[Rfam]
RNA sequence: GCGCCGGCGUAGCUCAGUGGUUACUUCGAACUGUUUAGGCUUCCUUCCCCCCACACCCUGCGGUCCCACCUGCAGAGUGCGGGGUUCGACCACGAGCGCUGUCCGGCGUUUUU
Dot-bracket structure: .((((((....((((.((((.....(((((((..................................................))))))))))))))).....)))))).....